MIR473 microRNA precursor family: a 74-nucleotide RNA from Theobroma umbraticum. The base pairs follow the family's consensus structure, which was predicted with WAR. Lineage of the source: Eukaryota > Embryophyta > eudicotyledons > Gunneridae > Theobroma.
[Rfam]
RNA sequence: CUUUUUCACUCUCUUUCGAAGGCUUCAAACUCAAUAAACUAAAGUUCGAAGCCUUCAAAGAGAGUGAAGAAAAG
Numbered sequence: 001c002u003u004u005u006u007c008a009c010u011c012u013c014u015u016u017c018g019a020a021g022g023c024u025u026c027a028a029a030c031u032c033a034a035u036a037a038a039c040u041a042a043a044g045u046u047c048g049a050a051g052c053c054u055u056c057a058a059a060g061a062g063a064g065u066g067a068a069g070a071a072a073a074g
Stems, first nucleotide, its partner, number of pairs: 006067010018056009